[Rfam]
RNA sequence: AAAAAGGGCGCGUCACACGGGGGUUUAAUCUUCCAAUGUGACAAGAGCUAUUAUAAGGCUUUUGCGGUAUGGCAAUCAAGACAUAUCGAGCGCAUAAUUUUUUAAAAGAAAUGAGUUGGGGGAGUUCGCUGUUUUGGCUUCGCUCUU
Numbered sequence: 001a002a003a004a005a006g007g008g009c010g011c012g013u014c015a016c017a018c019g020g021g022g023g024u025u026u027a028a029u030c031u032u033c034c035a036a037u038g039u040g041a042c043a044a045g046a047g048c049u050a051u052u053a054u055a056a057g058g059c060u061u062u063u064g065c066g067g068u069a070u071g072g073c074a075a076u077c078a079a080g081a082c083a084u085a086u087c088g089a090g091c092g093c094a095u096a097a098u099u100u101u102u103u104a105a106a107a108g109a110a111a112u113g114a115g116u117u118g119g120g121g122g123a124g125u126u127c128g129c130u131g132u133u134u135u136g137g138c139u140u141c142g143c144u145c146u147u
Stems, first nucleotide, its partner, number of pairs: 008093004013041005042064007065088007114146002118143001120141003124138002
Rfam assigns this 147-nucleotide RNA from Circinella minor to the family "U11 spliceosomal RNA". Its family is annotated with pre-mRNA 5'-splice site binding, mRNA 5'-splice site recognition and U11 snRNP in the Gene Ontology. The family has 72 seed sequences and 2,595 matches in Rfam 15.1. The organism belongs to Circinella, within Eukaryota.